[Rfam]
RNA sequence: UUACUCGGGUUUCUCUUCAUAACGUACAAGUAUUUCGCCUUUUACUAAAGGCUUCCGUGGAGAGGAACACCAAUGAGUUGAACCUAUUUUUGGUAGGCUUUGCCAUUUGGCGGAGCC
Numbered sequence: 001u002u003a004c005u006c007g008g009g010u011u012u013c014u015c016u017u018c019a020u021a022a023c024g025u026a027c028a029a030g031u032a033u034u035u036c037g038c039c040u041u042u043u044a045c046u047a048a049a050g051g052c053u054u055c056c057g058u059g060g061a062g063a064g065g066a067a068c069a070c071c072a073a074u075g076a077g078u079u080g081a082a083c084c085u086a087u088u089u090u091u092g093g094u095a096g097g098c099u100u101u102g103c104c105a106u107u108u109g110g111c112g113g114a115g116c117c
Stems, first nucleotide, its partner, number of pairs: 003078004009068011028054004033049003097116006